Rfam assigns this 150-nucleotide RNA from Hydrocarboniphaga effusa to the family "FMN riboswitch aptamer (RFN element)". Pairs were carried over by alignment from the consensus structure, which is taken from published work. Taxonomically the source falls in Hydrocarboniphaga effusa (Bacteria, Pseudomonadati, Pseudomonadota, Nevskiaceae).
[Rfam]
RNA sequence: GCGGAAUCUCGGGGCGGGGUGGAAUUCCCCACCGGCGGUGAUGGCGCGAAAGCGCACGAGCCCGCGGGCGCUCGCUGCCACAGCAGCGAGGACAGCAGAUUCGGUGCGAUUCCGAAGCCGACGGUAGAGUCCGGUUACGAGAGCAGCUGU
Numbered sequence: 001g002c003g004g005a006a007u008c009u010c011g012g013g014g015c016g017g018g019g020u021g022g023a024a025u026u027c028c029c030c031a032c033c034g035g036c037g038g039u040g041a042u043g044g045c046g047c048g049a050a051a052g053c054g055c056a057c058g059a060g061c062c063c064g065c066g067g068g069c070g071c072u073c074g075c076u077g078c079c080a081c082a083g084c085a086g087c088g089a090g091g092a093c094a095g096c097a098g099a100u101u102c103g104g105u106g107c108g109a110u111u112c113c114g115a116a117g118c119c120g121a122c123g124g125u126a127g128a129g130u131c132c133g134g135u136u137a138c139g140a141g142a143g144c145a146g147c148u149g150u
Stems, first nucleotide, its partner, number of pairs: 003148002008143003017029003031130002033120002035065004060118002068096002100116005122133003